[Rfam]
RNA sequence: GAUAUAGCGUGAAAGGAAUGUAGCUUUUUAGGCGAAUCUCCAGCGAUGGAGUUUUACCCUUUGAAGCCAAACAAUGUUAUAUCAUCCGUUUUGAAAAACGG
Number, nucleotide and partner (000 for none) at each position: 001g083002a082003u081004a080005u079006a078007g077008c076009g075010u074011g000012a000013a000014a000015g072016g000017a000018a000019u000020g000021u000022a000023g067024c066025u065026u064027u063028u000029u000030a000031g000032g058033c000034g000035a000036a000037u000038c051039u050040c049041c048042a047043g000044c000045g000046a000047u042048g041049g040050a039051g038052u000053u000054u000055u000056a000057c000058c032059c000060u000061u000062u000063g027064a026065a025066g024067c023068c000069a000070a000071a000072c015073a000074a010075u009076g008077u007078u006079a005080u004081a003082u002083c001084a000085u000086c101087c100088g099089u098090u000091u000092u000093g000094a000095a000096a000097a000098a089099c088100g087101g086